[Rfam]
Notes
Shown here is a 75-nucleotide RNA sequence from Nicotiana tabacum, a member of the family "Plastid-ycf2 5UTR RNA". Rfam 15.1 lists 3,521 matches to the family in 417 species. The match comes from Rfam's covariance-model search (66 bits). A reference for the family is Richter et al. (2023), "Retrograde signaling in plants: A critical review focusing on the GUN pathway and beyond", Plant Commun. The source organism's lineage runs through Eukaryota, lamiids, Solanaceae, Nicotianeae and Nicotiana. It is annotated as a cis-regulatory element.

Nucleotides: 075
Base pairs, nucleotide, nucleotide: 003075004074005073006072007071008070010026011025012024013023014022040069041068044066045065048062049061050060051059
Number, partner (000 for none) and nucleotide at each position: 001000g002000c003075g004074u005073a006072u007071c008070c009000g010026g011025u012024a013023g014022g015000a016000a017000u018000u019000g020000a021000a022014c023013c024012u025011a026010u027000g028000a029000a030000u031000u032000c033000a034000u035000c036000a037000a038000u039000c040069a041068u042000a043000a044066g045065u046000c047000a048062g049061g050060u051059g052000c053000u054000u055000u056000u057000a058000c059051u060050a061049u062048u063000c064000a065045g066044c067000c068041a069040u070008g071007g072006a073005u074004g075003c